[Rfam]
RNA sequence: GGCCGCGAGCGAGGCGUGGAUCUGCCGGUCGUGUGGUCGCCAGGGGGAGACCGGCAGGGAGCCAGAGGCGAAACCGAUGCUCUCGCAC
Dot-bracket structure: (..((.(((((.(((......((((((((.....[[[[[[[........))))))))...)))...]]]]]..]]..))))).))..)